Shown here is an 80-nucleotide RNA from Paenibacillus cellulosilyticus, a member of the family "ZMP/ZTP riboswitch aptamer (pfl RNA motif)". Lineage of the source: Bacteria > Bacillati > Bacillota > Bacilli > Paenibacillus.
[Rfam]
RNA sequence: AUCGCUGCGUGUGACUGGCGGAGCAUGGGGAACCAUGAGGAAGCACGCGGAUGAAUAAGCCGUACGCCUGGGCAGAGAUA
Dot-bracket structure: ....((((((((..(([[[[....((((....))))..))..))))))))........(((...]]]]..))).......
Numbered sequence: 001a002u003c004g005c006u007g008c009g010u011g012u013g014a015c016u017g018g019c020g021g022a023g024c025a026u027g028g029g030g031a032a033c034c035a036u037g038a039g040g041a042a043g044c045a046c047g048c049g050g051a052u053g054a055a056u057a058a059g060c061c062g063u064a065c066g067c068c069u070g071g072g073c074a075g076a077g078a079u080a
Stems, first nucleotide, its partner, number of pairs: 005050008015040002017068004025036004059073003
It scores 58 bits against the family's covariance model.